Alphaproteobacterial ar14: a 117-nucleotide RNA sequence from Aminobacter sp. J15. A reference for the family is del Val et al. (2012), "A survey of sRNA families in alpha-proteobacteria", RNA Biol. From the family's description: Smr14C2 was renamed NfeR1 (Nodule Formation Efficiency RNA) highly expressed in salt stress and during the symbiotic interaction on legume roots. It is annotated as a small RNA.
RNA sequence: AAGGGUCAUCAACGUUCCUCCUCCUCCCAGAACGUUGAUGACGAAUGCAGCGAUCCUCCUCCCUCGUUGCAUUUCAGAUUGAGCCCGCCGAUCCUCCUCCCUCGGCGGGCUUUAUCU
Numbered sequence: 001a002a003g004g005g006u007c008a009u010c011a012a013c014g015u016u017c018c019u020c021c022u023c024c025u026c027c028c029a030g031a032a033c034g035u036u037g038a039u040g041a042c043g044a045a046u047g048c049a050g051c052g053a054u055c056c057u058c059c060u061c062c063c064u065c066g067u068u069g070c071a072u073u074u075c076a077g078a079u080u081g082a083g084c085c086c087g088c089c090g091a092u093c094c095u096c097c098u099c100c101c102u103c104g105g106c107g108g109g110c111u112u113u114a115u116c117u
Base pairs, nucleotide, nucleotide: 007040008039009038011036012035013034014033015032016031017030043074044073045072046071047070048069049068050067051066052065081112082111083110084109085108086107087106088105089104090103091102